[Rfam]
RNA sequence: GUGUCCCCUAGAAUUCUCCUGAACACUUCAAUGGGGAUUUGAAAAUGAAAGAAGAAAAUACAAGCCAAGCUCCUACUGAAGUGUUUGGGGGAACUCCUGGUGCCAC
Dot-bracket structure: ....(.((..((.(((((((.(((((((((.((((....................................)))).))))))).))))))))).))..)).)....
A member of the RNA family "mir-395 microRNA precursor family" from Eucalyptus grandis, 106 nucleotides long. Pairs were carried over by alignment from the consensus structure, which was predicted with PFOLD. About the family: mir-395 was identified in both Arabidopsis thaliana and Oryza sativa computationally and was later experimentally verified. mir-395 is thought to target mRNAs coding for ATP sulphurylases. A search with the family's covariance model found it, with a score of 65 bits. On this family, see Jones-Rhoades and Bartel, Mol Cell 2004: "Computational Identification of Plant MicroRNAs and Their Targets, Including a Stress-Induced miRNA". Gene Ontology terms of the family: RISC complex and miRNA-mediated post-transcriptional gene silencing.